[Rfam]
RNA: SAM riboswitch aptamer (S box leader)
Organism: Terribacillus sp. AE2B 122
RNA sequence: AACUUAUCAAGAGAGGUGGAGGGACUGGCCCUAGGAUACCUCGGCAGCAGACUUUUUAAAGCACUGUGCCAAAUCCAGCAAGCGUAUGCUUGAAAGAUAAGCG
Numbered sequence: 001a002a003c004u005u006a007u008c009a010a011g012a013g014a015g016g017u018g019g020a021g022g023g024a025c026u027g028g029c030c031c032u033a034g035g036a037u038a039c040c041u042c043g044g045c046a047g048c049a050g051a052c053u054u055u056u057u058a059a060a061g062c063a064c065u066g067u068g069c070c071a072a073a074u075c076c077a078g079c080a081a082g083c084g085u086a087u088g089c090u091u092g093a094a095a096g097a098u099a100a101g102c103g
Base pairs, nucleotide, nucleotide: 003101004100005099006098007097008096013042014041015040016039017038021031022030023029025078026077027076028075043070044069045068046067048066049065050062053059074095079092080091081090082089083088